[Rfam]
RNA sequence: GCCUCUUCCUGCCUCUCACUAGCUUCAUCCCUCAGAAGCUGAAUCUUCUCAGGGAAGGAGCUACUGAAGAGCAGGAAUAGAU
Numbered sequence: 001g002c003c004u005c006u007u008c009c010u011g012c013c014u015c016u017c018a019c020u021a022g023c024u025u026c027a028u029c030c031c032u033c034a035g036a037a038g039c040u041g042a043a044u045c046u047u048c049u050c051a052g053g054g055a056a057g058g059a060g061c062u063a064c065u066g067a068a069g070a071g072c073a074g075g076a077a078u079a080g081a082u
Stems, first nucleotide, its partner, number of pairs: 003080002006077007014069001016067003020063007028055005034049002037046002
Overview:
The record is an 82-nucleotide RNA sequence from Physcomitrium patens, which matches "MIR1219 microRNA precursor family" in Rfam. The sequence is in the family's curated seed alignment. The family's consensus secondary structure was predicted with RNAalifold.